[Rfam]
RNA: Bacterial small subunit ribosomal RNA, nucleotides 935 to 1534
RNA sequence: UGACGGGGGCUCGCACAAGCGGUGGAGCAUGUGGCUUAAUUCGAUGCAACGCGAAAAACCUUACCGGGGCUUGACAUGAUAGAAGUAGGAACCUGAAAGGGGGACGAACGGUAUCCAGUCCGUAACUAUUACAGGUGUUGCAUGGCUGUCGUCAGCUCGUGUCGUGAGACGUUGGGUUAAGUCCCCUAACGAGCGAAACCCUUGUUUUUAGUUACCAGCGGGUUAUGCCGGGUACUCUAGAAAGACUGCCGUCGUCAAGACGGAGGAAGGUGGGGAUGACGUCAAGUCAUCAUGGCCCUUAUGCCCCGGGCUGCACACGUGCUACAAUGGUCGGUACAGACGGAAGCGAAGCCGAGAGGUGAAGCGAAUCCUAAAAAGCCGAUCUCAGUUCGGAUUGGAGGCUGAAAUUCGCCUCCAUGAAGUUGGAAUCGCUAGUAAUCGCGGAUCAGCAAUGUCGCGGUGAAUAUGUUCCCGAGCCUUGUACACACCGCCCGUCAAGCCACCCAAGCAGGAUGCACCCGAAAACAUUAUAUCUAACCAGGGCAACUUGGAGGAAAAUGUUGAAGGAGUGUUUUGUGAGGAGGACUAAGUCGUAACAAG
Numbered sequence: 001u002g003a004c005g006g007g008g009g010c011u012c013g014c015a016c017a018a019g020c021g022g023u024g025g026a027g028c029a030u031g032u033g034g035c036u037u038a039a040u041u042c043g044a045u046g047c048a049a050c051g052c053g054a055a056a057a058a059c060c061u062u063a064c065c066g067g068g069g070c071u072u073g074a075c076a077u078g079a080u081a082g083a084a085g086u087a088g089g090a091a092c093c094u095g096a097a098a099g100g101g102g103g104a105c106g107a108a109c110g111g112u113a114u115c116c117a118g119u120c121c122g123u124a125a126c127u128a129u130u131a132c133a134g135g136u137g138u139u140g141c142a143u144g145g146c147u148g149u150c151g152u153c154a155g156c157u158c159g160u161g162u163c164g165u166g167a168g169a170c171g172u173u174g175g176g177u178u179a180a181g182u183c184c185c186c187u188a189a190c191g192a193g194c195g196a197a198a199c200c201c202u203u204g205u206u207u208u209u210a211g212u213u214a215c216c217a218g219c220g221g222g223u224u225a226u227g228c229c230g231g232g233u234a235c236u237c238u239a240g241a242a243a244g245a246c247u248g249c250c251g252u253c254g255u256c257a258a259g260a261c262g263g264a265g266g267a268a269g270g271u272g273g274g275g276a277u278g279a280c281g282u283c284a285a286g287u288c289a290u291c292a293u294g295g296c297c298c299u300u301a302u303g304c305c306c307c308g309g310g311c312u313g314c315a316c317a318c319g320u321g322c323u324a325c326a327a328u329g330g331u332c333g334g335u336a337c338a339g340a341c342g343g344a345a346g347c348g349a350a351g352c353c354g355a356g357a358g359g360u361g362a363a364g365c366g367a368a369u370c371c372u373a374a375a376a377a378g379c380c381g382a383u384c385u386c387a388g389u390u391c392g393g394a395u396u397g398g399a400g401g402c403u404g405a406a407a408u409u410c411g412c413c414u415c416c417a418u419g420a421a422g423u424u425g426g427a428a429u430c431g432c433u434a435g436u437a438a439u440c441g442c443g444g445a446u447c448a449g450c451a452a453u454g455u456c457g458c459g460g461u462g463a464a465u466a467u468g469u470u471c472c473c474g475a476g477c478c479u480u481g482u483a484c485a486c487a488c489c490g491c492c493c494g495u496c497a498a499g500c501c502a503c504c505c506a507a508g509c510a511g512g513a514u515g516c517a518c519c520c521g522a523a524a525a526c527a528u529u530a531u532a533u534c535u536a537a538c539c540a541g542g543g544c545a546a547c548u549u550g551g552a553g554g555a556a557a558a559u560g561u562u563g564a565a566g567g568a569g570u571g572u573u574u575u576g577u578g579a580g581g582a583g584g585a586c587u588a589a590g591u592c593g594u595a596a597c598a599a600g
Stems, first nucleotide, its partner, number of pairs: 001485002003482003007479007015469002019432005024325001026323008034314002040055004064309007077131006088105001092101003108123003134298002137296004143292002145287003148283001150281002155194006161170003174185003200275004205243007215232002219230003246266002249263005329384007342371002346365002351360003391422001396417007438461007488600001490597001493593002498587002501584001504581002508577009518567002524562006533555003538551005